[Rfam]
RNA sequence: UUUUUAUUCGCCGAGCCUUUGUCGCUAAAUUUAGCCGCUAAACAUGUGAUCUAGGCCGUGAUUUUUUAAUCGCCAGGGUUAGUAAGGAAACGCACUAGCCUCCCGAUAUUGGAAAGGUGAACAUGUUAACCGAUA
Numbered sequence: 001u002u003u004u005u006a007u008u009c010g011c012c013g014a015g016c017c018u019u020u021g022u023c024g025c026u027a028a029a030u031u032u033a034g035c036c037g038c039u040a041a042a043c044a045u046g047u048g049a050u051c052u053a054g055g056c057c058g059u060g061a062u063u064u065u066u067u068a069a070u071c072g073c074c075a076g077g078g079u080u081a082g083u084a085a086g087g088a089a090a091c092g093c094a095c096u097a098g099c100c101u102c103c104c105g106a107u108a109u110u111g112g113a114a115a116g117g118u119g120a121a122c123a124u125g126u127u128a129a130c131c132g133a134u135a
Base pairs, nucleotide, nucleotide: 007121008120009119010118011117012116015056016055017054018053021050022049023048024047025046030042031041032040058073059072060071061070062069076101077100078099079098080097081096082095083094086091102112103111
The family of this 135-nucleotide RNA sequence from Thalassotalea marina is "Molybdenum/Tungsten riboswitch aptamer (Moco RNA motif)". Lineage of the source: Bacteria > Pseudomonadati > Alteromonadales > Colwelliaceae > Thalassotalea. A search with the family's covariance model found it, with a score of 87 bits. The base pairs follow the family's consensus structure, which is taken from published work.